[Rfam]
RNA sequence: CCCACACCAAUGUGUGCAGGACUCCAAAGGAUCACCAUUAAAUUUGGCACAGAUCUCUGUAAAAGUUAUCACAUGGGUGUGAGACUUGACUUUUUUAGAUAUCUGUAUCAAAUUUAAUGGUGAUCUUUUGGGGUCCUACACACGUGGGUAUGGG
Numbered sequence: 001c002c003c004a005c006a007c008c009a010a011u012g013u014g015u016g017c018a019g020g021a022c023u024c025c026a027a028a029g030g031a032u033c034a035c036c037a038u039u040a041a042a043u044u045u046g047g048c049a050c051a052g053a054u055c056u057c058u059g060u061a062a063a064a065g066u067u068a069u070c071a072c073a074u075g076g077g078u079g080u081g082a083g084a085c086u087u088g089a090c091u092u093u094u095u096u097a098g099a100u101a102u103c104u105g106u107a108u109c110a111a112a113u114u115u116a117a118u119g120g121u122g123a124u125c126u127u128u129u130g131g132g133g134u135c136c137u138a139c140a141c142a143c144g145u146g147g148g149u150a151u152g153g154g
Stems, first nucleotide, its partner, number of pairs: 002153003006149003010145004015140002018137011030125003034121014049106006056099004061094008069082005